[Rfam]
RNA sequence: GGGUGCCAAGCCGUAGGGGUUGGGCAGGUUCAUGCGAUGGUCGGGCCGCCUCG
Numbered sequence: 001g002g003g004u005g006c007c008a009a010g011c012c013g014u015a016g017g018g019g020u021u022g023g024g025c026a027g028g029u030u031c032a033u034g035c036g037a038u039g040g041u042c043g044g045g046c047c048g049c050c051u052c053g
Stems, first nucleotide, its partner, number of pairs: 005025003009021004035053003039050003
Dot-bracket structure: ....(((.((((.....)))).))).........(((.(((......))))))
nhaA-I RNA: a 53-nucleotide sequence from Giesbergeria anulus. The family's consensus secondary structure is taken from published work. From the family's description: Acidobacteria, Alphaproteobacteria, Betaproteobacteria and Gammaproteobacteria, Verrucomicrobia, cand. division NC10. It is annotated as a riboswitch. It scores 55 bits against the family's covariance model.